[Rfam]
RNA: MIR7486 microRNA precursor family
RNA sequence: CAUGUCAGCGCGACUUGCUGACAUGGAAGGAAAUCGCGUCCUGAGGGAGCGAUUUCCUUCCAUGUUAGCAAAUCGUGCUGACGUGG
Numbered sequence: 001c002a003u004g005u006c007a008g009c010g011c012g013a014c015u016u017g018c019u020g021a022c023a024u025g026g027a028a029g030g031a032a033a034u035c036g037c038g039u040c041c042u043g044a045g046g047g048a049g050c051g052a053u054u055u056c057c058u059u060c061c062a063u064g065u066u067a068g069c070a071a072a073u074c075g076u077g078c079u080g081a082c083g084u085g086g
Stems, first nucleotide, its partner, number of pairs: 001085013015071007023063015040046002